Shown here is a 290-nucleotide RNA sequence from Celeribacter neptunius, a member of the family "Proteobacterial sRNA sX6". On this family, see Schmidtke et al., Nucleic Acids Res 2011: "Genome-wide transcriptome analysis of the plant pathogen Xanthomonas identifies sRNAs with putative virulence functions".
RNA sequence: ACGGUGAGGACGUGGAAUAUGCCGACGGCCAUUCCAACGAGAUCCACCACGAGGCCGAAGACGUCGCGGCCUUCCUGAUGUGGGCCGCCGAGCCGAAGAUGAUGGCGCGCAAGAAAGCCGGCUUUGUCGCCGUGGCCUUCCUUGUCGUCCUCACCUCGCUUCUGUUCCUGACGAACAAGAAGCUCUGGGCGCCGCACAAAGGCAAAAAGACCACGCUCUGAGUGAGCUCAGUCUGACCAAACAGAAAGCGCCCCGGUUCCGCCGGGGCGCUUUUUUCAUGCGAGGAGCAU
Numbered sequence: 001a002c003g004g005u006g007a008g009g010a011c012g013u014g015g016a017a018u019a020u021g022c023c024g025a026c027g028g029c030c031a032u033u034c035c036a037a038c039g040a041g042a043u044c045c046a047c048c049a050c051g052a053g054g055c056c057g058a059a060g061a062c063g064u065c066g067c068g069g070c071c072u073u074c075c076u077g078a079u080g081u082g083g084g085c086c087g088c089c090g091a092g093c094c095g096a097a098g099a100u101g102a103u104g105g106c107g108c109g110c111a112a113g114a115a116a117g118c119c120g121g122c123u124u125u126g127u128c129g130c131c132g133u134g135g136c137c138u139u140c141c142u143u144g145u146c147g148u149c150c151u152c153a154c155c156u157c158g159c160u161u162c163u164g165u166u167c168c169u170g171a172c173g174a175a176c177a178a179g180a181a182g183c184u185c186u187g188g189g190c191g192c193c194g195c196a197c198a199a200a201g202g203c204a205a206a207a208a209g210a211c212c213a214c215g216c217u218c219u220g221a222g223u224g225a226g227c228u229c230a231g232u233c234u235g236a237c238c239a240a241a242c243a244g245a246a247a248g249c250g251c252c253c254c255g256g257u258u259c260c261g262c263c264g265g266g267g268c269g270c271u272u273u274u275u276u277c278a279u280g281c282g283a284g285g286a287g288c289a290u
Stems, first nucleotide, its partner, number of pairs: 022202002026120004032115002041110001043109001045107001051073005057067001092106003123200005132176002182192002215288004226232002244274014